[Rfam]
RNA sequence: AAAUGUCAGUGAUGUUUUUUACCUACAUUGUUUGAAUAUCUAAAUGUAAAAAAUCUUUAGACUGAGACAUUC
Numbered sequence: 001a002a003a004u005g006u007c008a009g010u011g012a013u014g015u016u017u018u019u020u021a022c023c024u025a026c027a028u029u030g031u032u033u034g035a036a037u038a039u040c041u042a043a044a045u046g047u048a049a050a051a052a053a054u055c056u057u058u059a060g061a062c063u064g065a066g067a068c069a070u071u072c
Stems, first nucleotide, its partner, number of pairs: 002071001004069004
A member of the RNA family "Small nucleolar RNA SNORD34" from Xenopus laevis, 72 nucleotides long.
For this family Rfam cites "Purified box C/D snoRNPs are able to reproduce site-specific 2'-O-methylation of target RNA in vitro" (Galardi et al., Mol Cell Biol, 2002).
Clan: SNORD34 clan.
The source organism's lineage runs through Eukaryota, Metazoa, Deuterostomia, Euteleostomi and Xenopus.